Plastid-rpl20 3UTR RNA: a 78-nucleotide RNA sequence from Triticum aestivum. For this family Rfam cites "Retrograde signaling in plants: A critical review focusing on the GUN pathway and beyond" (Richter et al., Plant Commun, 2023). Pairs were carried over by alignment from the consensus structure, which was predicted with LocARNA. The source organism's lineage runs through Eukaryota, Streptophytina, Triticodae, Triticinae and Triticum. About the family: Plastid rpl20 is a non-coding RNA (ncRNA) recognised in plastids. It was found in the three prime untranslated region (3UTR) of rpl20 gene, it presence in the 3UTR region sugest a role in transcript maduration.
RNA sequence: UGGGUUUUCCCGGAGGGGGAACUCCGGGAAGAUAUAAUAAAUUAAGAUUAAGUGGUACCUAUCAACGAACGAUCGAAU
Number, nucleotide and partner (000 for none) at each position: 001u000002g000003g000004g000005u000006u000007u030008u029009c028010c027011c026012g025013g024014a023015g022016g000017g000018g000019g000020a000021a000022c015023u014024c013025c012026g011027g010028g009029a008030a007031g000032a000033u000034a000035u000036a000037a000038u000039a000040a000041a000042u000043u000044a000045a000046g000047a000048u000049u000050a000051a000052g000053u000054g000055g000056u000057a000058c000059c000060u000061a000062u000063c000064a073065a000066c071067g000068a000069a000070c000071g066072a000073u064074c000075g000076a000077a000078u000